Shown here is a 409-nucleotide sequence from Robertmurraya siralis, a member of the family "Bacterial RNase P class B".
About the family: Ribonuclease P (RNase P) is a ubiquitous endoribonuclease, found in archaea, bacteria and eukarya as well as chloroplasts and mitochondria.
By type it is a ribozyme.
A search with the family's covariance model found it, with a score of 324 bits.
Clan: RNaseP clan.
For this family Rfam cites "The Ribonuclease P Database" (Brown, Nucleic Acids Res, 1999).

RNA sequence: ACGUUCGGGUAAUCGCUGCAAUAAGCUUUUUUGCGAAUUGUAGAGGAAAGUCCAUGCUCGCACAGGCUGAGAUGUCUGUAGUGUUCGUGCCUAGCGAAACGAUAAGCUAGGGCAUUAAGGAAGGGGCUGUGCUUCUUCCUUUUUGACGGCAGGGAAAAUGCCUAAGUCUUUAUGAUAUGGUGUGAAUACCUUGAAAGUGCCACAGUGACGGAGCCUGCUUAGAAAUGAGUAGGGUGGAACGGGGUAAACCCCACGAGCGAGAAACCCAAAUUAUGGUAGGGGCACCUUCUUUAAGGAAAUGAACGAGAAAGAAGGACAGGUUAAAUAUAACCUGUAGAUAGAUGAUUACCACCGGAGUACAAGACGAAGGUCGUUUGCAGUACGAAGGAACAAAACAUGGCUUACAGAA
Numbered sequence: 001a002c003g004u005u006c007g008g009g010u011a012a013u014c015g016c017u018g019c020a021a022u023a024a025g026c027u028u029u030u031u032u033g034c035g036a037a038u039u040g041u042a043g044a045g046g047a048a049a050g051u052c053c054a055u056g057c058u059c060g061c062a063c064a065g066g067c068u069g070a071g072a073u074g075u076c077u078g079u080a081g082u083g084u085u086c087g088u089g090c091c092u093a094g095c096g097a098a099a100c101g102a103u104a105a106g107c108u109a110g111g112g113c114a115u116u117a118a119g120g121a122a123g124g125g126g127c128u129g130u131g132c133u134u135c136u137u138c139c140u141u142u143u144u145g146a147c148g149g150c151a152g153g154g155a156a157a158a159u160g161c162c163u164a165a166g167u168c169u170u171u172a173u174g175a176u177a178u179g180g181u182g183u184g185a186a187u188a189c190c191u192u193g194a195a196a197g198u199g200c201c202a203c204a205g206u207g208a209c210g211g212a213g214c215c216u217g218c219u220u221a222g223a224a225a226u227g228a229g230u231a232g233g234g235u236g237g238a239a240c241g242g243g244g245u246a247a248a249c250c251c252c253a254c255g256a257g258c259g260a261g262a263a264a265c266c267c268a269a270a271u272u273a274u275g276g277u278a279g280g281g282g283c284a285c286c287u288u289c290u291u292u293a294a295g296g297a298a299a300u301g302a303a304c305g306a307g308a309a310a311g312a313a314g315g316a317c318a319g320g321u322u323a324a325a326u327a328u329a330a331c332c333u334g335u336a337g338a339u340a341g342a343u344g345a346u347u348a349c350c351a352c353c354g355g356a357g358u359a360c361a362a363g364a365c366g367a368a369g370g371u372c373g374u375u376u377g378c379a380g381u382a383c384g385a386a387g388g389a390a391c392a393a394a395a396c397a398u399g400g401c402u403u404a405c406a407g408a409a
Stems, first nucleotide, its partner, number of pairs: 004409003007405001008350007016043006048403003052400005057261005062079006085256005090111006112147001113145002117141011148251002151191003159182004166176003197249002199245003214233008265281003285315007316335008352388002357383004